RNA sequence: UAGAGCGGCAAGGGUAUCUCCUCCUCCCACCUGAUCCGCUCCACCGGCCGCGAUCGAAUCCUCCUCCCUCGAUUACGGCCGACAGUUUAAGGCUCCACCCCCUCCUCCCGGGUGGAGCCUUUUUC
Numbered sequence: 001u002a003g004a005g006c007g008g009c010a011a012g013g014g015u016a017u018c019u020c021c022u023c024c025u026c027c028c029a030c031c032u033g034a035u036c037c038g039c040u041c042c043a044c045c046g047g048c049c050g051c052g053a054u055c056g057a058a059u060c061c062u063c064c065u066c067c068c069u070c071g072a073u074u075a076c077g078g079c080c081g082a083c084a085g086u087u088u089a090a091g092g093c094u095c096c097a098c099c100c101c102c103u104c105c106u107c108c109c110g111g112g113u114g115g116a117g118c119c120u121u122u123u124u125c
Base pairs, nucleotide, nucleotide: 007042008041012036013035015033016032047079048078049077050076052074053073054072055071056070090120091119092118093117094116095115096114097113098112099111100110

The record is a 125-nucleotide sequence from Pelagibacterium lentulum, which matches "Alphaproteobacterial ar14" in Rfam. Taxonomically the source falls in Pelagibacterium (Bacteria, Pseudomonadati, Alphaproteobacteria, Devosiaceae). Rfam links the family to the GO term biological process involved in symbiotic interaction. Rfam's curators write: Smr14C2 was renamed NfeR1 (Nodule Formation Efficiency RNA) highly expressed in salt stress and during the symbiotic interaction on legume roots. It scores 61 bits against the family's covariance model. Rfam classes the family as a small RNA.